[Rfam]
RNA sequence: GAUCAAUUCGCGAAACGGUAUAGCCGCGUAACGAAUGGUUUUAACCACAGUUUUUAAUCGGGAAACCCGAUGAAAGGUGAGCA
Numbered sequence: 001g002a003u004c005a006a007u008u009c010g011c012g013a014a015a016c017g018g019u020a021u022a023g024c025c026g027c028g029u030a031a032c033g034a035a036u037g038g039u040u041u042u043a044a045c046c047a048c049a050g051u052u053u054u055u056a057a058u059c060g061g062g063a064a065a066c067c068c069g070a071u072g073a074a075a076g077g078u079g080a081g082c083a
Stems, first nucleotide, its partner, number of pairs: 004081001007035004016026004037046003050078003057071006

Shown here is an 83-nucleotide sequence, a member of the family "SucA RNA motif". Gene Ontology term of the family: regulation of translation. Rfam classes the family as a cis-regulatory element. Pairs were carried over by alignment from the consensus structure, which is taken from published work. The sequence is in the family's curated seed alignment.